[Rfam]
RNA sequence: AGGAUAAAAACUGGGGGGUAUUAGAAGUCAAGAAAAUAAUAGAUGCGUCGGCAUUUAUAGUUUUCGAACACGGACAAAACCAACUCCAGAUGUAUAGAGUUCAGAUCGUCCACAACCUUUCGGUUGGAUCGGAGCUCGAAGUUGGA
Numbered sequence: 001a002g003g004a005u006a007a008a009a010a011c012u013g014g015g016g017g018g019u020a021u022u023a024g025a026a027g028u029c030a031a032g033a034a035a036a037u038a039a040u041a042g043a044u045g046c047g048u049c050g051g052c053a054u055u056u057a058u059a060g061u062u063u064u065c066g067a068a069c070a071c072g073g074a075c076a077a078a079a080c081c082a083a084c085u086c087c088a089g090a091u092g093u094a095u096a097g098a099g100u101u102c103a104g105a106u107c108g109u110c111c112a113c114a115a116c117c118u119u120u121c122g123g124u125u126g127g128a129u130c131g132g133a134g135c136u137c138g139a140a141g142u143u144g145g146a
Stems, first nucleotide, its partner, number of pairs: 011089006017081003027071002032065005039058004044053003098136005104130004113126005
Shown here is a 146-nucleotide RNA, a member of the family "IMES-3 RNA motif".